Rfam assigns this 92-nucleotide RNA from Targowskia paracuniculus to the family "t44 RNA". The base pairs follow the family's consensus structure, which was predicted with LocARNA. Rfam describes the family as follows. This family consists of a number of bacterial RNA genes of between 135 and 170 bases in length. It scores 57 bits against the family's covariance model. The literature on the family includes a 2002 paper in Nucleic Acids Res by Tjaden et al., "Transcriptome analysis of Escherichia coli using high-density oligonucleotide probe arrays".
RNA sequence: UAUCUUUUAACACUAAAACACACACAUAUCACUCACUAAGCAUCGGGGUGCUGAUUUUCAGUUGAUUGUCUUAGGAUAUGUGGAGGCUAAAC
Numbered sequence: 001u002a003u004c005u006u007u008u009a010a011c012a013c014u015a016a017a018a019c020a021c022a023c024a025c026a027u028a029u030c031a032c033u034c035a036c037u038a039a040g041c042a043u044c045g046g047g048g049u050g051c052u053g054a055u056u057u058u059c060a061g062u063u064g065a066u067u068g069u070c071u072u073a074g075g076a077u078a079u080g081u082g083g084a085g086g087c088u089a090a091a092c
Base pairs, nucleotide, nucleotide: 023082024081025080026079027078028077029076030075037073038072039071040070042066043065044064045063050062051061052060053059054058